[Rfam]
RNA sequence: CCUAGGGUUGAAACCCUAGGCUAUAAUAUCAAUCGCCCUUACAGGGCU
Numbered sequence: 001c002c003u004a005g006g007g008u009u010g011a012a013a014c015c016c017u018a019g020g021c022u023a024u025a026a027u028a029u030c031a032a033u034c035g036c037c038c039u040u041a042c043a044g045g046g047c048u
Stems, first nucleotide, its partner, number of pairs: 001020008035047005
Acido-Lenti-1 RNA: a 48-nucleotide RNA sequence from Indibacter alkaliphilus. The family's consensus secondary structure is taken from published work. A search with the family's covariance model found it, with a score of 44 bits. The organism belongs to Indibacter alkaliphilus, within Bacteria.